RNA: mir-204 microRNA precursor family
RNA sequence: AUGUGACCCGUGGACUUCCCUUUGUCAUCCUAUGCCUGAGGAUAUAUGAAGGAGGCUAGGAAGGCAAAGGGACGUUCAACUGUCAUCCUG
Numbered sequence: 001a002u003g004u005g006a007c008c009c010g011u012g013g014a015c016u017u018c019c020c021u022u023u024g025u026c027a028u029c030c031u032a033u034g035c036c037u038g039a040g041g042a043u044a045u046a047u048g049a050a051g052g053a054g055g056c057u058a059g060g061a062a063g064g065c066a067a068a069g070g071g072a073c074g075u076u077c078a079a080c081u082g083u084c085a086u087c088c089u090g
Base pairs, nucleotide, nucleotide: 017072018071019070020069021068022067024065025064028061029060030059031058032057034056035055036054037053